[Rfam]
Nucleotides: 592
Stems, first nucleotide, its partner, number of pairs: 001582003005579007013453002016450001020445001021412001027410003031407003036068002041066003048060002075365003085286003090281002094279002100274003118153004127143006160181004167174002186235006200223004206215003245267004250263004288336003295327003302324008340362004344355004367388002370385003390401001392399002418443001420442003426438005458488003461484010495515002497512001499511001525571006538565004547554002
Number, partner (000 for none) and nucleotide at each position: 001582a002581g003580u004000c005579a006578u007577a008576u009575g010574c011573u012000u013453g014452u015000c016450u017000c018000a019000a020445a021412g022000a023000u024000u025000a026000a027410g028409c029408c030000a031407u032406g033405c034000a035000u036068g037067u038000c039000u040000a041066a042065g043064u044000a045000u046000a047000a048060g049059c050000a051000a052000u053000u054000a055000u056000a057000c058000a059049g060048u061000g062000a063000a064043a065042c066041u067037g068036c069000g070000a071000a072000u073000g074000g075365c076364u077363c078000a079000u080000u081000a082000a083000a084000u085286c086285a087284g088000u089000u090281a091280u092000c093000g094279u095278u096000u097000a098000u099000u100274u101273g102272a103000u104000a105000g106000u107000u108000c109000u110000u111000u112000u113000u114000a115000c116000u117000a118153c119152a120151u121150g122000g123000a124000u125000a126000a127143c128142c129141g130140u131139g132138g133000u134000a135000a136000u137000u138132c139131u140130g141129u142128g143127g144000c145000u146000a147000a148000u149000a150121c151120a152119u153118g154000a155000c156000u157000a158000g159000a160181a161180c162179c163178c164000g165000g166000a167174c168173u169000u170000u171000a172000u173168g174167g175000g176000a177000a178163g179162g180161g181160u182000g183000u184000a185000u186235u187234u188233a189232u190231u191230a192000g193000a194000u195000a196000a197000a198000a199000a200223a201222u202221c203220a204000a205000u206215g207214c208213c209000u210000u211000c212000g213208g214207g215206c216000g217000g218000u219000u220203u221202g222201a223200u224000g225000a226000u227000u228000c229000a230191u231190a232189a233188u234187a235186a236000c237000u238000u239000u240000u241000c242000g243000a244000a245267g246266c247265u248264c249000a250263u251262g252261g253260c254000c255000u256000u257000u258000g259000u260253g261252c262251u263250g264248g265247a266246g267245c268000u269000g270000g271000u272102u273101c274100a275000u276000u277000c278095a279094a280091a281090u282000u283000u284087c285086u286085g287000c288336c289335c290334u291000a292000u293000c294000a295327a296326c297325u298000u299000u300000c301000g302324a303323u304322g305321g306320u307319a308318g309317g310000a311000u312000a313000g314000a315000g316000g317309c318308c319307u320306a321305c322304c323303a324302u325297g326296g327295u328000u329000u330000u331000u332000a333000c334290g335289g336288g337000u338000a339000a340362c341361g342360g343359g344355g345354a346353a347352u348000a349000a350000g351000g352347g353346u354345u355344c356000g357000a358000u359343u360342c361341c362340g363077g364076a365075g366000a367388g368387g369000g370385a371384g372383c373000c374000u375000g376000a377000g378000a379000a380000a381000c382000g383372g384371c385370u386000a387368c388367c389000a390401c391000a392399u393398c394000c395000a396000a397000g398393g399392a400000a401390g402000g403000c404000a405033g406032c407031a408029g409028g410027c411000g412021c413000g414000c415000a416000a417000a418443u419000u420442a421441c422440c423000c424000a425000a426438u427437c428436c429435u430434g431000a432000c433000a434430c435429a436428g437427g438426g439000a440422g441421g442420u443418a444000g445020u446000g447000a448000c449000a450016a451000u452014a453013u454000a455000u456000a457000a458488c459487g460486a461484u462483a463482c464481a465480g466479g467478g468477c469476c470475c471000u472000u473000a474000a475470g476469g477468g478467u479466c480465u481464u482463g483462u484461a485000a486460u487459u488458g489000g490000a491000a492000u493000g494000a495515g496514u497512a498000c499511a500000a501000u502000g503000u504000a505000a506000a507000u508000a509000c510000c511499u512497u513000a514496a515495c516000g517000a518000g519000g520000a521000a522000c523000a524000a525571u526570u527569g528568g529567a530566g531000g532000g533000c534000a535000a536000g537000u538565c539564u540563g541562g542000u543000g544000c545000c546000a547554g548553c549000a550000g551000c552000c553548g554547c555000g556000g557000u558000a559000a560000u561000u562541c563540c564539a565538g566530c567529u568528c569527c570526a571525a572000u573011a574010g575009c576008g577007u578006a579005u580003a581002u582001u583000a584000a585000a586000g587000u588000u589000g590000u591000u592000g
Description:
A member of the RNA family "Eukaryotic small subunit ribosomal RNA" from Brettanomyces nanus, 592 nucleotides of a longer RNA. Pairs were carried over by alignment from the consensus structure, which is taken from published work. The match comes from Rfam's covariance-model search (1799 bits). Taxonomically the source falls in Brettanomyces (Eukaryota, Dikarya, Ascomycota, Pichiomycetes).